The record is a 116-nucleotide sequence from Sodalis sp. Fse, which matches "Ribosomal S15 leader" in Rfam. Its Rfam clan is "Ribosomal Protein S15 Leader clan". A search with the family's covariance model found it, with a score of 76 bits. Gene Ontology term of the family: regulation of translation, ncRNA-mediated. The family's RNA type in Rfam is cis-regulatory leader. For this family Rfam cites "Pseudoknot and translational control in the expression of the S15 ribosomal protein" (Benard et al., Biochimie, 1996). About the family: The E. coli Ribosomal S15 gene 5' UTR can form two alternative structures. One that is a series of three hairpins, The other includes a pseudoknot. This structure causes translational regulation of the S15 protein.
[Rfam]
RNA sequence: CCUGGUGGCUGAAUUAUAGAGCGGCGUUCUCUACUUCACAUUAAAUUUGGAGUGUUAUAAUGUCUCUAAGUGUUAAAGGAAAAACAAAAAUUAUUUUUGAUUGUGGUGUUGAUGCC
Numbered sequence: 001c002c003u004g005g006u007g008g009c010u011g012a013a014u015u016a017u018a019g020a021g022c023g024g025c026g027u028u029c030u031c032u033a034c035u036u037c038a039c040a041u042u043a044a045a046u047u048u049g050g051a052g053u054g055u056u057a058u059a060a061u062g063u064c065u066c067u068a069a070g071u072g073u074u075a076a077a078g079g080a081a082a083a084a085c086a087a088a089a090a091u092u093a094u095u096u097u098u099g100a101u102u103g104u105g106g107u108g109u110u111g112a113u114g115c116c
Stems, first nucleotide, its partner, number of pairs: 008025004046070007